[Rfam]
RNA sequence: AGGGCUGGUCGAAAGACCCAGGUCCAUCGAAGGCGGGGAAGUCCCCC
Dot-bracket structure: .(((((((((....))))..)))))......................
Numbered sequence: 001a002g003g004g005c006u007g008g009u010c011g012a013a014a015g016a017c018c019c020a021g022g023u024c025c026a027u028c029g030a031a032g033g034c035g036g037g038g039a040a041g042u043c044c045c046c047c
Stems, first nucleotide, its partner, number of pairs: 002025005007018004
The family of this 47-nucleotide RNA is "DUF3800-XI RNA". The sequence is in the family's curated seed alignment. From the family's description: Actinobacteria, Firmicutes, Proteobacteria, Spirochaetes (1 example). The family's RNA type in Rfam is small RNA. The family's consensus secondary structure is taken from published work.